[Rfam]
RNA sequence: GCUUCUUGCCGGGCCCCACCUCCUCCCGGGGCCCGAUGCAAAAACGGCGGCACGCUUCCUCCUCCCUCGUGCCGCCGUCCUUU
Numbered sequence: 001g002c003u004u005c006u007u008g009c010c011g012g013g014c015c016c017c018a019c020c021u022c023c024u025c026c027c028g029g030g031g032c033c034c035g036a037u038g039c040a041a042a043a044a045c046g047g048c049g050g051c052a053c054g055c056u057u058c059c060u061c062c063u064c065c066c067u068c069g070u071g072c073c074g075c076c077g078u079c080c081u082u083u
Stems, first nucleotide, its partner, number of pairs: 009035001011034007045077010
RNA: Conserved CCUCCUCCC motif stress-induced RNA 1
Organism: Aliigemmobacter aestuarii